This 43-nucleotide sequence from Mikania micrantha belongs to the Rfam family "Plastid-rpl16 group II-D1 intron". Plastid-rpl16 is a non-coding RNA (ncRNA) recognised in plastids. It was recognised in and intronic region of a ribosome rpl16 gene. Lineage of the source: Eukaryota > Magnoliopsida > Mesangiospermae > Heliantheae alliance > Mikania.

RNA sequence: AAGAGCUUCGAGCCAAUAAAGACAAAUAAUAUUGACUCAAGAA
Numbered sequence: 001a002a003g004a005g006c007u008u009c010g011a012g013c014c015a016a017u018a019a020a021g022a023c024a025a026a027u028a029a030u031a032u033u034g035a036c037u038c039a040a041g042a043a
Stems, first nucleotide, its partner, number of pairs: 007041002010038003014034004

Overview: Rfam links the family to the GO term Group II intron splicing. The literature on the family includes a 2023 paper in Plant Commun by Richter et al., "Retrograde signaling in plants: A critical review focusing on the GUN pathway and beyond".